RNA sequence: UGUAUUCCUUAUCUGUUAUCUGUUUCUAAUGGUUAUAGGAGCCUAUCUUCCCGUGAUACCACGGGGAUAUGACGGGAAGAUAGGCCCUGCUGUUAUUACCGCUACCCCUGAAUAU
Numbered sequence: 001u002g003u004a005u006u007c008c009u010u011a012u013c014u015g016u017u018a019u020c021u022g023u024u025u026c027u028a029a030u031g032g033u034u035a036u037a038g039g040a041g042c043c044u045a046u047c048u049u050c051c052c053g054u055g056a057u058a059c060c061a062c063g064g065g066g067a068u069a070u071g072a073c074g075g076g077a078a079g080a081u082a083g084g085c086c087c088u089g090c091u092g093u094u095a096u097u098a099c100c101g102c103u104a105c106c107c108c109u110g111a112a113u114a115u
Base pairs, nucleotide, nucleotide: 002099003098004097020092022090023089038088039087041085042084043083044082045081046080047079050076051075052074053073054072056070057069058068060066
Dot-bracket structure: .(((...............(.((..............((.(((((((..(((((.(((.(.....).))).)))))..))))))).)))).)....)))................